[Rfam]
RNA sequence: GCAACUCUGGAAAGCAGCCAGUCAGCGUACUGGUUCACCGACGGUGCAAGCCGGACCCGACCAUUCCUCGGGCCGCGCGGAAUCUCUCAGGUCCCAGACAGAGCGGGGAGG
Numbered sequence: 001g002c003a004a005c006u007c008u009g010g011a012a013a014g015c016a017g018c019c020a021g022u023c024a025g026c027g028u029a030c031u032g033g034u035u036c037a038c039c040g041a042c043g044g045u046g047c048a049a050g051c052c053g054g055a056c057c058c059g060a061c062c063a064u065u066c067c068u069c070g071g072g073c074c075g076c077g078c079g080g081a082a083u084c085u086c087u088c089a090g091g092u093c094c095c096a097g098a099c100a101g102a103g104c105g106g107g108g109a110g111g
Stems, first nucleotide, its partner, number of pairs: 002106001005103005016035004037092003040088002044086001046084001050078002
Dot-bracket structure: .(..(((((......((((............)))).(((((..(.(...((.........................)).....).))).)))......)))))..).....